[Rfam]
RNA: Bacterial RNase P class A
RNA sequence: UGAGUAAGUCAGAUGAUCGCCGGUACAAAACCGCAAGGUUGUACGGGAGGAAAGUCCGAGCUCCGUAGGGCAGGGUGCCGGGUAACACCCGGUGGAGGCAACUCUAAGGCAAGUGCAACAGAAAGCAAACCGCCACCAAAAUGCUUUGCAUUUUGGCGGUAAGGAUGAAACGGUGAGGUAAGAGCUCACCAGCGGAUAGGUAACUAUUCGGCUAGGUAAACCCCACCUGGAGCAAGACCAAGAACGGACACAAAAAGGCAACUGCCCGUUGCUGUCCAAUGGUAGGUCGCAUGAGUUUACUGGCGACAGUAAACCUAGAUAGAUGAUCAUCUAAUACAGAACUCGGCUUAUAGAUUUACUCACAUA
Numbered sequence: 001u002g003a004g005u006a007a008g009u010c011a012g013a014u015g016a017u018c019g020c021c022g023g024u025a026c027a028a029a030a031c032c033g034c035a036a037g038g039u040u041g042u043a044c045g046g047g048a049g050g051a052a053a054g055u056c057c058g059a060g061c062u063c064c065g066u067a068g069g070g071c072a073g074g075g076u077g078c079c080g081g082g083u084a085a086c087a088c089c090c091g092g093u094g095g096a097g098g099c100a101a102c103u104c105u106a107a108g109g110c111a112a113g114u115g116c117a118a119c120a121g122a123a124a125g126c127a128a129a130c131c132g133c134c135a136c137c138a139a140a141a142u143g144c145u146u147u148g149c150a151u152u153u154u155g156g157c158g159g160u161a162a163g164g165a166u167g168a169a170a171c172g173g174u175g176a177g178g179u180a181a182g183a184g185c186u187c188a189c190c191a192g193c194g195g196a197u198a199g200g201u202a203a204c205u206a207u208u209c210g211g212c213u214a215g216g217u218a219a220a221c222c223c224c225a226c227c228u229g230g231a232g233c234a235a236g237a238c239c240a241a242g243a244a245c246g247g248a249c250a251c252a253a254a255a256a257g258g259c260a261a262c263u264g265c266c267c268g269u270u271g272c273u274g275u276c277c278a279a280u281g282g283u284a285g286g287u288c289g290c291a292u293g294a295g296u297u298u299a300c301u302g303g304c305g306a307c308a309g310u311a312a313a314c315c316u317a318g319a320u321a322g323a324u325g326a327u328c329a330u331c332u333a334a335u336a337c338a339g340a341a342c343u344c345g346g347c348u349u350a351u352a353g354a355u356u357u358a359c360u361c362a363c364a365u366a
Base pairs, nucleotide, nucleotide: 001362002361003360004359005358006357007356008355009354010353011351012331013330014329015328016327017326018325020047021046023044024043025042026041027040028039052349053348054347056346057345058344059343060342061232062231063230064229068267069266070265071264073228074227075226076225077224078092079091080090081089082088093107094105095104096103097102108223109222113221114220115217116216130164131163132160133159134158136156137155138154139153140152141151142150143149172190173189174188175187176186177185192212193210194209195208196207197206198205199204236288237287238286239285246277247276248275249274258272259271260270261269262268295314296313297312298311299310300309301308302307